[Rfam]
RNA sequence: AUACGUGUAGGGUGGAGAUGCACAAUCGUCGGACCGUGUAGCACCGCGUCAUGUCGAGUACUGCCACAGGCGCCUCACGACACGACCCGGGCUUGAUCAGACGCCACGGGCGUCCACGCAGGACAAUUGAUUCCUCCUCCUGACUGAGUGCUUUUGACACCACAGCAAGCAGGAAGCGUGGUCGCGACUUCACCCCCGUUGGGUGGACUCGCUAGACACUGCAAUGGCCCCCGCCACUGCUGACGCACCUGACACCGACCGUGAGAAGUCGUGUGUGCCGAACGCCGUUUCCGGCAGCCCGGAAACCGA
Numbered sequence: 001a002u003a004c005g006u007g008u009a010g011g012g013u014g015g016a017g018a019u020g021c022a023c024a025a026u027c028g029u030c031g032g033a034c035c036g037u038g039u040a041g042c043a044c045c046g047c048g049u050c051a052u053g054u055c056g057a058g059u060a061c062u063g064c065c066a067c068a069g070g071c072g073c074c075u076c077a078c079g080a081c082a083c084g085a086c087c088c089g090g091g092c093u094u095g096a097u098c099a100g101a102c103g104c105c106a107c108g109g110g111c112g113u114c115c116a117c118g119c120a121g122g123a124c125a126a127u128u129g130a131u132u133c134c135u136c137c138u139c140c141u142g143a144c145u146g147a148g149u150g151c152u153u154u155u156g157a158c159a160c161c162a163c164a165g166c167a168a169g170c171a172g173g174a175a176g177c178g179u180g181g182u183c184g185c186g187a188c189u190u191c192a193c194c195c196c197c198g199u200u201g202g203g204u205g206g207a208c209u210c211g212c213u214a215g216a217c218a219c220u221g222c223a224a225u226g227g228c229c230c231c232c233g234c235c236a237c238u239g240c241u242g243a244c245g246c247a248c249c250u251g252a253c254a255c256c257g258a259c260c261g262u263g264a265g266a267a268g269u270c271g272u273g274u275g276u277g278c279c280g281a282a283c284g285c286c287g288u289u290u291c292c293g294g295c296a297g298c299c300c301g302g303a304a305a306c307c308g309a
Stems, first nucleotide, its partner, number of pairs: 014137004023129004028124003036117003040093003100114004138174005177245003181217003184212004190206006221240003225236003252276004256271004287306007
Shown here is a 309-nucleotide RNA sequence from Pseudomonas sp. M47T1, a member of the family "rne-II RNA". Pairs were carried over by alignment from the consensus structure, which is taken from published work. Rfam classes the family as a cis-regulatory element.